[Rfam]
RNA: mir-146 microRNA precursor family
RNA sequence: CUGUGUGCCCAGCUUUGAGAACUGAAUUCCAUAAGCUUUAAUAUACAAACAAAUGCUGUGGAUUCAGUUCUGCCGCUGGGCACUAACCA
Number, nucleotide and partner (000 for none) at each position: 001c000002u000003g000004u000005g000006u000007g000008c080009c079010c000011a077012g076013c075014u000015u000016u000017g000018a071019g070020a069021a068022c067023u066024g065025a064026a000027u000028u000029c000030c000031a000032u000033a000034a057035g056036c055037u000038u000039u000040a000041a000042u000043a000044u000045a000046c000047a000048a000049a000050c000051a000052a000053a000054u000055g036056c035057u034058g000059u000060g000061g000062a000063u000064u025065c024066a023067g022068u021069u020070c019071u018072g000073c000074c000075g013076c012077u011078g000079g009080g008081c000082a000083c000084u000085a000086a000087c000088c000089a000